Acido-Lenti-1 RNA: a 46-nucleotide RNA sequence from Roseimaritima ulvae. The source organism's lineage runs through Bacteria, Planctomycetota, Planctomycetia, Pirellulales and Roseimaritima.
[Rfam]
RNA sequence: CCACGGGCUUGCGCCCGUGGCUACAUGCAGUCGUCCCUUCGGGACU
Numbered sequence: 001c002c003a004c005g006g007g008c009u010u011g012c013g014c015c016c017g018u019g020g021c022u023a024c025a026u027g028c029a030g031u032c033g034u035c036c037c038u039u040c041g042g043g044a045c046u
Stems, first nucleotide, its partner, number of pairs: 001020008033045005